[Rfam]
RNA sequence: CUCUGGAAAGCUCAUAUAAGACACCGACGAAGCAAUCUUAAAUGUAGUAAGAGAAUCUUUCAGGUAAAAAGACAGAG
Dot-bracket structure: (((((......((......)).(((((..(((...(((((.......)))))....))))).))).......)))))
Numbered sequence: 001c002u003c004u005g006g007a008a009a010g011c012u013c014a015u016a017u018a019a020g021a022c023a024c025c026g027a028c029g030a031a032g033c034a035a036u037c038u039u040a041a042a043u044g045u046a047g048u049a050a051g052a053g054a055a056u057c058u059u060u061c062a063g064g065u066a067a068a069a070a071g072a073c074a075g076a077g
Stems, first nucleotide, its partner, number of pairs: 001077005012021002023065003026061002030059003036052005

Overview: This 77-nucleotide sequence from Clostridium celatum belongs to the Rfam family "Glycine riboswitch aptamer". A search with the family's covariance model found it, with a score of 45 bits.